[Rfam]
RNA: TPP riboswitch aptamer (THI element)
Organism: Clostridium fungisolvens
RNA sequence: GAUAUUUGCUGGGGGUGCCGCAAGGCUGAGAGGGAUACUUUAUCCUAACUCCAUGAACCUGAUAUGGUUAGAACCAUCGUAGGGAAGCAAGGGCUUUAUUCG
Dot-bracket structure: .....(((((((((..(((....)))......(((((...)))))...)))).....((((..((((......))))..))))..)))))............
Numbered sequence: 001g002a003u004a005u006u007u008g009c010u011g012g013g014g015g016u017g018c019c020g021c022a023a024g025g026c027u028g029a030g031a032g033g034g035a036u037a038c039u040u041u042a043u044c045c046u047a048a049c050u051c052c053a054u055g056a057a058c059c060u061g062a063u064a065u066g067g068u069u070a071g072a073a074c075c076a077u078c079g080u081a082g083g084g085a086a087g088c089a090a091g092g093g094c095u096u097u098a099u100u101c102g
Stems, first nucleotide, its partner, number of pairs: 006090005011052004017026003033045005058083004064077004